[Rfam]
RNA sequence: GGCCCUGUCGUUGUGACGGAGGCCGGCCCGACUCCGGUACCUGGUACGGCCGGGGCGG
Numbered sequence: 001g002g003c004c005c006u007g008u009c010g011u012u013g014u015g016a017c018g019g020a021g022g023c024c025g026g027c028c029c030g031a032c033u034c035c036g037g038u039a040c041c042u043g044g045u046a047c048g049g050c051c052g053g054g055g056c057g058g
Base pairs, nucleotide, nucleotide: 001024002023003022004021005019006018007017008016028058029057030056032055033054034053035052036051037050038049
A member of the RNA family "L17-Actino-Proteobacteria ribosomal protein leader" from Nonomuraea sp. WAC 01424, 58 nucleotides long. The base pairs follow the family's consensus structure, which is taken from published work. Lineage of the source: Bacteria > Actinomycetota > Actinomycetes > Streptosporangiaceae > Nonomuraea. For this family Rfam cites "Discovery of 20 novel ribosomal leader candidates in bacteria and archaea" (Eckert and Weinberg, BMC Microbiol, 2020).